[Rfam]
RNA sequence: AGUUCUGAUGCACCGCGAAAAUUUGCAGGUGGAGAACGAGGAGACAUGAGGCACUCAGUGCCCACACGAAAGCGCUGUUGGAUGAUUCCAACAGCGCUUUUUA
Numbered sequence: 001a002g003u004u005c006u007g008a009u010g011c012a013c014c015g016c017g018a019a020a021a022u023u024u025g026c027a028g029g030u031g032g033a034g035a036a037c038g039a040g041g042a043g044a045c046a047u048g049a050g051g052c053a054c055u056c057a058g059u060g061c062c063c064a065c066a067c068g069a070a071a072g073c074g075c076u077g078u079u080g081g082a083u084g085a086u087u088c089c090a091a092c093a094g095c096g097c098u099u100u101u102u103a
Base pairs, nucleotide, nucleotide: 002037003036004035005034009033011031012030013029014028015026016025017024018023041067047064048063050062051061052060053059054058069100070099071098072097073096074095075094076093077092078091079090080089081088082087
RNA: Burkholderia sRNA 1
Organism: Paraburkholderia megapolitana